Rfam assigns this 114-nucleotide RNA from Nocardia farcinica to the family "SAM (S-adenosyl methionine) riboswitch aptamer".
SAM-IV is a mRNA element that regulates gene expression via direct sensing of S-adenosylmethionine (SAM or AdoMet). SAM-IV riboswitches share conserved nucleotide positions with the previously described SAM-I riboswitches sequence analysis and molecular recognition experiments suggest that SAM-I and SAM-IV riboswitches share similar ligand binding sites, but have different scaffolds.
The family has 40 seed sequences and 2,360 matches in Rfam 15.1.
Nucleotides: 114
Stems, first nucleotide, its partner, number of pairs: 001078004009038001011037006021030002039065003044061003048056002081103004086099005
Number, partner (000 for none) and nucleotide at each position: 001078g002077g003076u004075c005000a006000u007000g008000a009038g010000u011037g012036c013035c014034a015033g016032c017000g018000c019000a020000a021030a022029g023000c024000c025000c026000c027000g028000g029022c030021u031000c032016g033015c034014u035013g036012g037011u038009c039065g040064g041063c042000a043000a044061c045060c046059c047000u048056c049055c050000u051000c052000c053000g054000c055049g056048g057000u058000g059046g060045g061044g062000u063041g064040c065039u066000c067000c068000g069000g070000g071000u072000g073000a074000c075004g076003a077002c078001c079000u080000g081103g082102c083101c084100g085000c086099c087098g088097u089096c090095c091000g092000a093000c094000c095090g096089g097088a098087c099086g100084c101083g102082g103081c104000a105000a106000g107000c108000g109000c110000g111000g112000a113000c114000u
The literature on the family includes a 2008 paper in RNA by Weinberg et al., "The aptamer core of SAM-IV riboswitches mimics the ligand-binding site of SAM-I riboswitches". The sequence is in the family's curated seed alignment.